[Rfam]
RNA sequence: CAAACGGCCCUUUUCAGGGCCACCAACAUUUUUCAAAAAAAGAAU
Numbered sequence: 001c002a003a004a005c006g007g008c009c010c011u012u013u014u015c016a017g018g019g020c021c022a023c024c025a026a027c028a029u030u031u032u033u034c035a036a037a038a039a040a041a042g043a044a045u
Stems, first nucleotide, its partner, number of pairs: 006021006
This 45-nucleotide RNA from Mytilus edulis belongs to the Rfam family "Histone 3' UTR stem-loop". A search with the family's covariance model found it, with a score of 42 bits. The organism belongs to Mytilus, within Eukaryota. It is annotated as a cis-regulatory element. Rfam describes the family as follows. The mRNAs of metazoan histone genes lack a poly-A tail. 3' end processing occurs at a site between a highly conserved stem-loop (modelled by this family) and a purine rich region around 20 nts downstream (the histone downstream element, or HDE). The stem-loop is bound by a 31 kDa stem-loop binding protein (SLBP - also termed the histone hairpin binding protein, or HBP). Together with U7 snRNA binding of the HDE, SLBP binding nucleate s the formation of the processing complex.